[Rfam]
RNA: Pseudomonas sRNA P9
RNA sequence: CUAAUUAUUACCAUCAUUCCAUAGGAAUGGUGGGUUUUUGAUGCGCUUAUAAUUUAUCAAACCCGCCGAAGAGGCGGGUUUU
Numbered sequence: 001c002u003a004a005u006u007a008u009u010a011c012c013a014u015c016a017u018u019c020c021a022u023a024g025g026a027a028u029g030g031u032g033g034g035u036u037u038u039u040g041a042u043g044c045g046c047u048u049a050u051a052a053u054u055u056a057u058c059a060a061a062c063c064c065g066c067c068g069a070a071g072a073g074g075c076g077g078g079u080u081u082u
Base pairs, nucleotide, nucleotide: 011033012032013031014030015029016028017027059081060080061079062078063077064076065075066074067073